[Rfam]
A member of the RNA family "c-di-GMP-I riboswitch aptamer" from Salimicrobium jeotgali, 86 nucleotides long.
RNA sequence: UUAACGAAAAGGCAAACCUUAUGAAAAUAAGGGACGCAAAGCCAUGGGUCUAAGGGAGAAUCAUCCUAAGACAGCCGGUUAUCGAA
Numbered sequence: 001u002u003a004a005c006g007a008a009a010a011g012g013c014a015a016a017c018c019u020u021a022u023g024a025a026a027a028u029a030a031g032g033g034a035c036g037c038a039a040a041g042c043c044a045u046g047g048g049u050c051u052a053a054g055g056g057a058g059a060a061u062c063a064u065c066c067u068a069a070g071a072c073a074g075c076c077g078g079u080u081a082u083c084g085a086a
Stems, first nucleotide, its partner, number of pairs: 012037002017032006040080004046076002048072003055066003
Notes
The family's consensus secondary structure is taken from published work. From the family's description: GEMM was predicted in a large-scale screen for bacterial structured RNA regulatory elements. It scores 82 bits against the family's covariance model.